[Rfam]
Description
Rfam assigns this 473-nucleotide part of an RNA from Phytophthora infestans to the family "Eukaryotic large subunit ribosomal RNA". Its family is annotated with structural constituent of ribosome and ribosome in the Gene Ontology. The family's consensus secondary structure is taken from published work. Rfam's curators put it in the seed alignment.
RNA sequence: GGUAGUAGCAAAUAUUCAAAUGCGAACUUUGAAGACUGAAGUGGAGAAAGGUUCCGUGUGAUCAGUAAUUGGACACGGGUGAGUCGAUCCUAAGAGAUAGGAUAAUUCCGUUUGAAAGCUGGGCUGUUUGAGGCGUGGGGUUCGUCCUUGCGUUUUGUAUGCAGCCUCGUGUAUCGAAAGGGAAUCAGGUUAAUAUUCCUGAACCGAGACGUGGAUAAUAUGUGGUAACACAACCGACCCAGGAGACGCUAGCGUGUGCCCAGGGAAGAGUUCUCUUUUCUUUUUAACAAGCAUAUCCUACCUUGGAAACGGAUUAUCCGGCGAUAAGGAGGAUGCCUUGGCAAAGCACUUUACUUUUUGAAGUGUCCUGCGCGCCCACGACAGCCCUUGAAAAUCCUGGCUAGAGAUUUAUUCGCACCCUCGUUCGUACUCAUAACCGCAUCAGGUCUCCAAGGUUAGCAGCCUCUAGUUGA
Numbered sequence: 001g002g003u004a005g006u007a008g009c010a011a012a013u014a015u016u017c018a019a020a021u022g023c024g025a026a027c028u029u030u031g032a033a034g035a036c037u038g039a040a041g042u043g044g045a046g047a048a049a050g051g052u053u054c055c056g057u058g059u060g061a062u063c064a065g066u067a068a069u070u071g072g073a074c075a076c077g078g079g080u081g082a083g084u085c086g087a088u089c090c091u092a093a094g095a096g097a098u099a100g101g102a103u104a105a106u107u108c109c110g111u112u113u114g115a116a117a118g119c120u121g122g123g124c125u126g127u128u129u130g131a132g133g134c135g136u137g138g139g140g141u142u143c144g145u146c147c148u149u150g151c152g153u154u155u156u157g158u159a160u161g162c163a164g165c166c167u168c169g170u171g172u173a174u175c176g177a178a179a180g181g182g183a184a185u186c187a188g189g190u191u192a193a194u195a196u197u198c199c200u201g202a203a204c205c206g207a208g209a210c211g212u213g214g215a216u217a218a219u220a221u222g223u224g225g226u227a228a229c230a231c232a233a234c235c236g237a238c239c240c241a242g243g244a245g246a247c248g249c250u251a252g253c254g255u256g257u258g259c260c261c262a263g264g265g266a267a268g269a270g271u272u273c274u275c276u277u278u279u280c281u282u283u284u285u286a287a288c289a290a291g292c293a294u295a296u297c298c299u300a301c302c303u304u305g306g307a308a309a310c311g312g313a314u315u316a317u318c319c320g321g322c323g324a325u326a327a328g329g330a331g332g333a334u335g336c337c338u339u340g341g342c343a344a345a346g347c348a349c350u351u352u353a354c355u356u357u358u359u360g361a362a363g364u365g366u367c368c369u370g371c372g373c374g375c376c377c378a379c380g381a382c383a384g385c386c387c388u389u390g391a392a393a394a395u396c397c398u399g400g401c402u403a404g405a406g407a408u409u410u411a412u413u414c415g416c417a418c419c420c421u422c423g424u425u426c427g428u429a430c431u432c433a434u435a436a437c438c439g440c441a442u443c444a445g446g447u448c449u450c451c452a453a454g455g456u457u458a459g460c461a462g463c464c465u466c467u468a469g470u471u472g473a
Base pairs, nucleotide, nucleotide: 015033016032017031018030019029020028034471035470036469037468043451044450045449046448049431050430054078055077056076057075058074059073063071064070085427086426087425089181090180094175095174096112097111098110100109101108102107121166185202186201187200188199189198205423206422207421208420211418212417213416215413221232222231223230224229239400240399241398242397243396244395248385249384250383253380254379255378256377258375259374261370262369263368264284265283266282267281268280269279288340289339290338291337301329302328303327304326305325310320311319312318347365348364349363350362351361352360353359437446438445453465454464455463456462